Overview
The family of this 74-nucleotide RNA sequence from Medicago truncatula is "MIR5272 microRNA precursor family". A search with the family's covariance model found it, with a score of 76 bits. The base pairs follow the family's consensus structure, which was predicted with RNAalifold.
RNA sequence: UUUGAUGUGAAUUAAUUUAUAUUUGGAUGCACUUUUUUAAAAGUGAUUCUUAGGAAUUGAUGUUCUUUGGAUGA
Dot-bracket structure: ..........((((((((...(..((((.(((((......)))))))))..).)))))))).............